[Rfam]
RNA sequence: CCGCGAAAGGGAUAGCAGCGGCAUCCUUUUGUGAAGCGAAAGCGGAACAAAAGAUAGAGCGAAUAGCCCGACCCAAG
Numbered sequence: 001c002c003g004c005g006a007a008a009g010g011g012a013u014a015g016c017a018g019c020g021g022c023a024u025c026c027u028u029u030u031g032u033g034a035a036g037c038g039a040a041a042g043c044g045g046a047a048c049a050a051a052a053g054a055u056a057g058a059g060c061g062a063a064u065a066g067c068c069c070g071a072c073c074c075a076a077g
Stems, first nucleotide, its partner, number of pairs: 009069003013065002018060002023055003029050004
RNA: Flavo-1 RNA